[Rfam]
RNA: Purine riboswitch aptamer
RNA sequence: AGAAUAGAAAAGGUUCGGACUUAUAUAAAUUCAUAAUUGGAUGAAUGUUUCUACAAACUGCCGUAACAGUUGACUAUAAGCUGCCCGCAAGGGAGA
Numbered sequence: 001a002g003a004a005u006a007g008a009a010a011a012g013g014u015u016c017g018g019a020c021u022u023a024u025a026u027a028a029a030u031u032c033a034u035a036a037u038u039g040g041a042u043g044a045a046u047g048u049u050u051c052u053a054c055a056a057a058c059u060g061c062c063g064u065a066a067c068a069g070u071u072g073a074c075u076a077u078a079a080g081c082u083g084c085c086c087g088c089a090a091g092g093g094a095g096a
Stems, first nucleotide, its partner, number of pairs: 018082001020080006029046006056071005
Dot-bracket structure: .................(.((((((...((((((......)))))).........(((((......)))))...)))))).)..............